[Rfam]
RNA sequence: GACUCUGUGUGAUAUGUUUGAUAUAUUAGGUUGUAAUUUAGCCCAACUAUAUAUCAAACAUUCCUACGGUGU
Numbered sequence: 001g002a003c004u005c006u007g008u009g010u011g012a013u014a015u016g017u018u019u020g021a022u023a024u025a026u027u028a029g030g031u032u033g034u035a036a037u038u039u040a041g042c043c044c045a046a047c048u049a050u051a052u053a054u055c056a057a058a059c060a061u062u063c064c065u066a067c068g069g070u071g072u
Stems, first nucleotide, its partner, number of pairs: 005069005011062001014061012029048005